Description: A member of the RNA family "Makes More Granules Regulator RNA (mmgR)" from Methylobacterium sp. 4-46, 75 nucleotides long. The base pairs follow the family's consensus structure.
[Rfam]
RNA sequence: UUCUGCUGCCCUCUUUGGGCGUUUCCUCCCUAGACUUGGGCCACACCGCGCGUGUGGCCUUUUUUCUUUGGGGGU
Numbered sequence: 001u002u003c004u005g006c007u008g009c010c011c012u013c014u015u016u017g018g019g020c021g022u023u024u025c026c027u028c029c030c031u032a033g034a035c036u037u038g039g040g041c042c043a044c045a046c047c048g049c050g051c052g053u054g055u056g057g058c059c060u061u062u063u064u065u066c067u068u069u070g071g072g073g074g075u
Base pairs, nucleotide, nucleotide: 008020009019010018011017038060039059040058041057042056043055044054045053046052

It is one of the family's seed sequences. On this family, see Lagares et al., Mol Phylogenet Evol 2016: "Phylogenetic distribution and evolutionary pattern of an alpha-proteobacterial small RNA gene that controls polyhydroxybutyrate accumulation in Sinorhizobium meliloti".